[Rfam]
RNA sequence: UCAGUUCUCUUUGCCUCUUGGCUUAGAUCUAAAUGCAGUAUCUGUUCUUUUCAGUUUAAUCGCUGGAAGCCCUCUACGGAGGUGCGUUUCGUGAUUAACUAGUUUUUGGACCCGGGCGGCGGCGGCGGUGGCUUUUUGCUGCCGUGACCGCUGCCACUGUGUCGCUCGUAUUGCACUGUUGCGGGCUGACGCGAACCCAU
Numbered sequence: 001u002c003a004g005u006u007c008u009c010u011u012u013g014c015c016u017c018u019u020g021g022c023u024u025a026g027a028u029c030u031a032a033a034u035g036c037a038g039u040a041u042c043u044g045u046u047c048u049u050u051u052c053a054g055u056u057u058a059a060u061c062g063c064u065g066g067a068a069g070c071c072c073u074c075u076a077c078g079g080a081g082g083u084g085c086g087u088u089u090c091g092u093g094a095u096u097a098a099c100u101a102g103u104u105u106u107u108g109g110a111c112c113c114g115g116g117c118g119g120c121g122g123c124g125g126c127g128g129u130g131g132c133u134u135u136u137u138g139c140u141g142c143c144g145u146g147a148c149c150g151c152u153g154c155c156a157c158u159g160u161g162u163c164g165c166u167c168g169u170a171u172u173g174c175a176c177u178g179u180u181g182c183g184g185g186c187u188g189a190c191g192c193g194a195a196c197c198c199a200u
Stems, first nucleotide, its partner, number of pairs: 008027003013022003049068006069085002071082004115155008128142005158193006164186006
A member of the RNA family "U2 spliceosomal RNA" from Aplosporella prunicola, 200 nucleotides long.
Its Rfam clan is "U2 clan".
The family has 208 seed sequences and 71,512 matches in Rfam 15.1.
From the family's description: U2 is a small nuclear RNA (snRNA) component of the spliceosome (involved in pre-mRNA splicing).
The source organism's lineage runs through Eukaryota, dothideomyceta, Dothideomycetes, Botryosphaeriales and Aplosporella prunicola.